[Rfam]
This 65-nucleotide sequence from Chinchilla lanigera belongs to the Rfam family "mir-484 microRNA precursor family". Taxonomically the source falls in Chinchilla (Eukaryota, Craniata, Vertebrata, Theria). A search with the family's covariance model found it, with a score of 66 bits.
RNA sequence: UCGUCAGGCUCAGUCCCCUCCCGAUAAAGCCCUAAGUGGGGGCUUCCCGGGGGAUGGCCUGGCUU
Dot-bracket structure: ..(((.((.((.(((((((...((.(...((((....))))..)))..))))))))))).)))..